[Rfam]
RNA sequence: CGAGCCAGAAGAGGCGCGUCGCCCAGGCAGGGUGUCAGAGGAACCGUAUUCCACUGACGGCACUUGAGGGGGAGCGACGCCGAGGUACGUGGGCAGGCGGAUGCCCCGUAUCGGCUACAGAGGCUGAAUCCUCUGGGUUGUCACCAGAUCGCCCAACGCGGGCGGCCAGCAAGGUGGAGCGCUUCUGGGAGU
Number, nucleotide and partner (000 for none) at each position: 001c000002g000003a000004g000005c000006c187007a186008g185009a184010a183011g182012a000013g000014g000015c000016g080017c079018g078019u077020c076021g075022c074023c000024c072025a000026g000027g000028c000029a000030g065031g064032g063033u062034g061035u060036c059037a000038g000039a000040g000041g000042a000043a000044c000045c000046g000047u000048a000049u000050u000051c000052c000053a000054c000055u000056g000057a000058c000059g036060g035061c034062a033063c032064u031065u030066g000067a000068g000069g000070g000071g000072g024073a000074g022075c021076g020077a019078c018079g017080c016081c000082g000083a000084g112085g111086u110087a109088c108089g107090u000091g106092g105093g104094c103095a102096g000097g000098c000099g000100g000101a000102u095103g094104c093105c092106c091107c089108g088109u087110a086111u085112c084113g139114g138115c137116u136117a000118c135119a134120g133121a132122g131123g130124c000125u000126g000127a000128a000129u000130c123131c122132u121133c120134u119135g118136g116137g115138u114139u113140g000141u177142c176143a175144c174145c173146a000147g000148a000149u000150c000151g000152c000153c000154c000155a000156a000157c000158g000159c000160g000161g000162g000163c000164g000165g000166c000167c000168a000169g000170c000171a000172a000173g145174g144175u143176g142177g141178a000179g000180c000181g000182c011183u010184u009185c008186u007187g006188g000189g000190a000191g000192u000
The family of this 192-nucleotide RNA from Chimaeribacter arupi is "Lysine riboswitch aptamer". Taxonomically the source falls in Chimaeribacter (Bacteria, Pseudomonadati, Gammaproteobacteria, Yersiniaceae). Rfam describes the family as follows. Riboswitches are metabolite binding domains within certain messenger RNAs that serve as precision sensors for their corresponding targets. The literature on the family includes a 2003 paper in Cell by Mandal et al., "Riboswitches Control Fundamental Biochemical Pathways in Bacillus subtilis and Other Bacteria".